MIR2275 microRNA precursor family: a 92-nucleotide RNA from Nyssa sinensis. Taxonomically the source falls in Nyssa (Eukaryota, Streptophytina, Mesangiospermae, Nyssaceae). Gene Ontology terms of the family: miRNA-mediated post-transcriptional gene silencing and RISC complex.
RNA sequence: AAGUCGUAGGUGAGAAUUGGAGGAUGCUAAACAAAUCAAUGCUAUAUCUUUUGAAAAUUGUUUGGUUUCCUCCAAUAUCUCAUCUUCGACUU
Numbered sequence: 001a002a003g004u005c006g007u008a009g010g011u012g013a014g015a016a017u018u019g020g021a022g023g024a025u026g027c028u029a030a031a032c033a034a035a036u037c038a039a040u041g042c043u044a045u046a047u048c049u050u051u052u053g054a055a056a057a058u059u060g061u062u063u064g065g066u067u068u069c070c071u072c073c074a075a076u077a078u079c080u081c082a083u084c085u086u087c088g089a090c091u092u
Stems, first nucleotide, its partner, number of pairs: 004089003008085001011082004016076006023069002026066005032060002